Notes:
mir-338 microRNA precursor family: a 68-nucleotide RNA sequence from Ornithorhynchus anatinus. The literature on the family includes a 2010 paper in PLoS One by Stark et al., "Characterization of the Melanoma miRNAome by Deep Sequencing". The family's consensus secondary structure was predicted with RNAalifold.
RNA sequence: CCGCCAACAAUAUCCUGACGCUGAGUGACUGCGCUCGGAGACUCCAGCAUCAGUGAUUUUGUUGAAGG
Number, nucleotide and partner (000 for none) at each position: 001c000002c000003g000004c000005c000006a063007a062008c061009a060010a059011u000012a057013u056014c055015c053016u052017g051018a050019c000020g048021c047022u046023g045024a000025g000026u000027g000028a000029c000030u000031g000032c000033g000034c000035u000036c000037g000038g000039a000040g000041a000042c000043u000044c000045c023046a022047g021048c020049a000050u018051c017052a016053g015054u000055g014056a013057u012058u000059u010060u009061g008062u007063u006064g000065a000066a000067g000068g000